[Rfam]
RNA sequence: CCGUGCAGCCGGGGAGAUAGCGGUGCCCUGUACCUGCAAUCCGCUACAGCAGGGGUGAUGCCAAAUCUGAGGGGCUUUCUUUGCGGAGCUGCCCUUUAUAAGUGGCGCUGACGUCUGGGUCUUGCGCAACAGAACUCUACGAAUCGUGUCAGGUCAGGAAUGAAGCAGCACUAAGUAGAAUCUUCUGUGUGCCGUGAGGGUGCCUGGGCCGAGUUAACUGUAGAGGUAACGUCCGUGAAGGGGUUUCGAGGUGCGGCGCACGG
Numbered sequence: 001c002c003g004u005g006c007a008g009c010c011g012g013g014g015a016g017a018u019a020g021c022g023g024u025g026c027c028c029u030g031u032a033c034c035u036g037c038a039a040u041c042c043g044c045u046a047c048a049g050c051a052g053g054g055g056u057g058a059u060g061c062c063a064a065a066u067c068u069g070a071g072g073g074g075c076u077u078u079c080u081u082u083g084c085g086g087a088g089c090u091g092c093c094c095u096u097u098a099u100a101a102g103u104g105g106c107g108c109u110g111a112c113g114u115c116u117g118g119g120u121c122u123u124g125c126g127c128a129a130c131a132g133a134a135c136u137c138u139a140c141g142a143a144u145c146g147u148g149u150c151a152g153g154u155c156a157g158g159a160a161u162g163a164a165g166c167a168g169c170a171c172u173a174a175g176u177a178g179a180a181u182c183u184u185c186u187g188u189g190u191g192c193c194g195u196g197a198g199g200g201u202g203c204c205u206g207g208g209c210c211g212a213g214u215u216a217a218c219u220g221u222a223g224a225g226g227u228a229a230c231g232u233c234c235g236u237g238a239a240g241g242g243g244u245u246u247c248g249a250g251g252u253g254c255g256g257c258g259c260a261c262g263g
Base pairs, nucleotide, nucleotide: 001263002262003261004260005259006258008056009055010054011029012028013027014026016024018022033053034052035051036050037049062255065252066251067250068249071247072246073245074244075243077242078241079240080239081238082237083236084235085234086233090228091227094225095224096223097222098221099220102218103217104215105214106213113209114208115207116206117205118204119203120202121198122197123196124195125194126193127189128188130187131186132185133184134183136179137178138177139176140175146171147170148169149168154163155162156161
A member of the RNA family "Bacterial large signal recognition particle RNA" from Blautia pseudococcoides, 263 nucleotides long. The base pairs follow the family's consensus structure, which is taken from published work. A reference for the family is Rosenblad et al. (2003), "SRPDB: Signal Recognition Particle Database", Nucleic Acids Res. The source organism's lineage runs through Bacteria, Bacillati, Bacillota, Lachnospirales and Blautia. Rfam's curators write: The signal recognition particle (SRP) is a universally conserved ribonucleoprotein involved in the co-translational targeting of proteins to membranes. It scores 188 bits against the family's covariance model.